[Rfam]
RNA sequence: AGAUGCAUACUAGGCCACAGCAGAAGCACUCAUGACAUGGCCCUGUCAGAUUCCAAUGAAUCUGCAAAUUAUUCU
Numbered sequence: 001a002g003a004u005g006c007a008u009a010c011u012a013g014g015c016c017a018c019a020g021c022a023g024a025a026g027c028a029c030u031c032a033u034g035a036c037a038u039g040g041c042c043c044u045g046u047c048a049g050a051u052u053c054c055a056a057u058g059a060a061u062c063u064g065c066a067a068a069u070u071a072u073u074c075u
Stems, first nucleotide, its partner, number of pairs: 013042004019075002022072001024070002026038001047064007
Dot-bracket structure: ............((((..[[.[.[[(...........)))))....(((((((....)))))))....]].].]]
Mammalian CPEB3 ribozyme: a 75-nucleotide sequence from Crocodylus porosus. The base pairs follow the family's consensus structure, which is taken from published work. Taxonomically the source falls in Crocodylus (Eukaryota, Gnathostomata, Teleostomi, Tetrapoda). Its family is annotated with RNA nuclease activity in the Gene Ontology.